Mammalian CPEB3 ribozyme: a 77-nucleotide RNA from Alligator mississippiensis. The match comes from Rfam's covariance-model search (47 bits).
RNA sequence: GGUUGCAAGUUUGAGGCCAUAGCAGAAGCACUUAGGGCACGGCCCUGUCAGAUUCCAGCGAAUCUGCACAUUCUGCU
Numbered sequence: 001g002g003u004u005g006c007a008a009g010u011u012u013g014a015g016g017c018c019a020u021a022g023c024a025g026a027a028g029c030a031c032u033u034a035g036g037g038c039a040c041g042g043c044c045c046u047g048u049c050a051g052a053u054u055c056c057a058g059c060g061a062a063u064c065u066g067c068a069c070a071u072u073c074u075g076c077u
Stems, first nucleotide, its partner, number of pairs: 013045001015044004021077007028040001049066007